[Rfam]
RNA sequence: UCAGUAGUGAGAACUGGUAACUCCACCACCGUUGGCGUAUAUUUGAAUGCCAGCGGUUGAGGAGUUCCUUAAUUUCGCUGCGGA
Dot-bracket structure: ...(((((((((...((.(((((..(..(((((((((..........)))))))))..)..))))).))...)))))))))...